[Rfam]
RNA sequence: UAGAAUAAUGUAGGUAAGGGAAGUCGGCAAAUUGGAUCCGUAACUUCGGGAUAAGGAUUGGCUCUGAGGGUUGGGGCGGUCGGGCUUUGCACAGGAAGCGGUUGUGCCCACCGGCGGGCCUGGGCGAGCCUCGUGUGGGGUGAACCCGGUCCCGUUCAAGGGCCUCCGUGGAUUGUCAUUGCUUUGCAGGCCCUGCUUCACGGCGGGUGUCCUGUUCGGUCGUCGAUCAACAACCAACUCAGAACUGGCACGGACAAGGGGAAUCCGACUGUCUAAUUAAAACAAAGCAUUGCGAUGGCCAGAGAGUGGUGUUGACGCAAUGUGAUUUCUGCCCAGUGCUCUGAAUGUCAAAGUGAAGAGAUUCGUCCAAGCGCGGGUAAACGGCGGGAGUAACUAUGACUCUCUUAAGGUAGCCAAAUGCCUCGUCAUCUAAUUAGUGACGCGCAUGAAUGGAUUAACGAGAUUCCCACUGUCCCUAUCUACUAUCUAGCGAAACCGCAGCCAAGGGAACGGACUUGGGAAG
Numbered sequence: 001u002a003g004a005a006u007a008a009u010g011u012a013g014g015u016a017a018g019g020g021a022a023g024u025c026g027g028c029a030a031a032u033u034g035g036a037u038c039c040g041u042a043a044c045u046u047c048g049g050g051a052u053a054a055g056g057a058u059u060g061g062c063u064c065u066g067a068g069g070g071u072u073g074g075g076g077c078g079g080u081c082g083g084g085c086u087u088u089g090c091a092c093a094g095g096a097a098g099c100g101g102u103u104g105u106g107c108c109c110a111c112c113g114g115c116g117g118g119c120c121u122g123g124g125c126g127a128g129c130c131u132c133g134u135g136u137g138g139g140g141u142g143a144a145c146c147c148g149g150u151c152c153c154g155u156u157c158a159a160g161g162g163c164c165u166c167c168g169u170g171g172a173u174u175g176u177c178a179u180u181g182c183u184u185u186g187c188a189g190g191c192c193c194u195g196c197u198u199c200a201c202g203g204c205g206g207g208u209g210u211c212c213u214g215u216u217c218g219g220u221c222g223u224c225g226a227u228c229a230a231c232a233a234c235c236a237a238c239u240c241a242g243a244a245c246u247g248g249c250a251c252g253g254a255c256a257a258g259g260g261g262a263a264u265c266c267g268a269c270u271g272u273c274u275a276a277u278u279a280a281a282a283c284a285a286a287g288c289a290u291u292g293c294g295a296u297g298g299c300c301a302g303a304g305a306g307u308g309g310u311g312u313u314g315a316c317g318c319a320a321u322g323u324g325a326u327u328u329c330u331g332c333c334c335a336g337u338g339c340u341c342u343g344a345a346u347g348u349c350a351a352a353g354u355g356a357a358g359a360g361a362u363u364c365g366u367c368c369a370a371g372c373g374c375g376g377g378u379a380a381a382c383g384g385c386g387g388g389a390g391u392a393a394c395u396a397u398g399a400c401u402c403u404c405u406u407a408a409g410g411u412a413g414c415c416a417a418a419u420g421c422c423u424c425g426u427c428a429u430c431u432a433a434u435u436a437g438u439g440a441c442g443c444g445c446a447u448g449a450a451u452g453g454a455u456u457a458a459c460g461a462g463a464u465u466c467c468c469a470c471u472g473u474c475c476c477u478a479u480c481u482a483c484u485a486u487c488u489a490g491c492g493a494a495a496c497c498g499c500a501g502c503c504a505a506g507g508g509a510a511c512g513g514a515c516u517u518g519g520g521a522a523g
Stems, first nucleotide, its partner, number of pairs: 001489004010483007018475003035059005044049001060246002063243006069235005075224009084182002088178002091176002098169004106163004113156006120149005128141005247251001259468007266460002270284003287323008298310004327454003331385003336382002338378004343374001346373003353366005386404006405409001425441005502519005
A member of the RNA family "Eukaryotic large subunit ribosomal RNA" from Paracyclopina nana, 523 nucleotides of a longer RNA.